[Rfam]
Plastid-psbA-1 3UTR RNA: a 131-nucleotide RNA sequence from Coptis chinensis. The family's consensus secondary structure was predicted with LocARNA. Plastid psbA-1 is a non-coding RNA (ncRNA) present in plastids. The family's RNA type in Rfam is cis-regulatory element. The family is grouped with related families in Rfam's "Plastid-psbA 3UTR RNA clan".
RNA sequence: UUGAAGUUCCAUCCACAAAUGGCUAAGAGUUAGGUCUUAGUGUACACAAGUUUUAGUGUAUAUGAGUUGUUGAAGUUGCAAGAGUAAUACCCAAAUUUUUGUUUUGUUAAGAAUUUGGAUAUUACUCCUGC
Numbered sequence: 001u002u003g004a005a006g007u008u009c010c011a012u013c014c015a016c017a018a019a020u021g022g023c024u025a026a027g028a029g030u031u032a033g034g035u036c037u038u039a040g041u042g043u044a045c046a047c048a049a050g051u052u053u054u055a056g057u058g059u060a061u062a063u064g065a066g067u068u069g070u071u072g073a074a075g076u077u078g079c080a081a082g083a084g085u086a087a088u089a090c091c092c093a094a095a096u097u098u099u100u101g102u103u104u105u106g107u108u109a110a111g112a113a114u115u116u117g118g119a120u121a122u123u124a125c126u127c128c129u130g131c
Base pairs, nucleotide, nucleotide: 009022010021011020012019078131079130080129082127083126084125085124086123087122088121089120092117093116094115096113097112098111099110100109
The organism belongs to Coptis, within Eukaryota.